[Rfam]
RNA sequence: GAAGCCGGACAGGCAGUCGCCGCGCCCUUCAGGGCGGGGAGGAAAGUCCGGGCUCCGCAGGGCAGGAUGCCGGCUAACGGCCGGGCGCCGCAAGGCGACGGAAAGUGGAACAGAGAGCUGAACCGCCGAUGGCCCCCGGGCGCGCAAGCGUACCGGGAACCGGCACAGGCAAGGGUGAAAAGGUGGACUCCUCCGGGAGCGGCCGGGGCAACCCGGUUCGGUAAGAGCGCACCGCGGACGUGGCAACACGGACGGCAGGCUAAACCCCAUCCGGAGCAAGGCCAAAUAGGGGUGCACAGGCGUGGCCCGCGCUGCACCCGGGUAGGCUGCUUGAGCCUGCCGGUAACGGCAGGCCUAGAGGAAUGACUGCUCAACGACAGAACCCGGCUUAUCGUCCGGCUUCCCAC
Dot-bracket structure: ((((((((((((((((((.((.(((((....))))).))....[[[.[[[[[((((...[[[[.((((((((((.....)))))(((((....)))).)((...((((..............(((((..((.(............................).))..)))..)).......((((............................................))))(((..((((....))))..)).)...))..)))))))))))))...((((......((((((...(((((.]]]]))))))))))).....))))......((((((((....))))))))..........)))))))...........]]]]]]]].).))))))))))....
A member of the RNA family "Bacterial RNase P class A" from Gulbenkiania mobilis, 407 nucleotides long. Its family is annotated with tRNA processing, dimeric ribonuclease P complex and ribonuclease P activity in the Gene Ontology. It is annotated as a ribozyme. Lineage of the source: Bacteria > Pseudomonadati > Pseudomonadota > Betaproteobacteria > Gulbenkiania. About the family: Ribonuclease P (RNase P) is a ubiquitous endoribonuclease, found in archaea, bacteria and eukarya as well as chloroplasts and mitochondria. Its best characterised activity is the generation of mature 5'-ends of tRNAs by cleaving the 5'-leader elements of precursor-tRNAs. Cellular RNase Ps are ribonucleoproteins. RNA from bacterial RNase Ps retains its catalytic activity in the absence of the protein subunit, i.e. it is a ribozyme. Pairs were carried over by alignment from the consensus structure, which is taken from published work.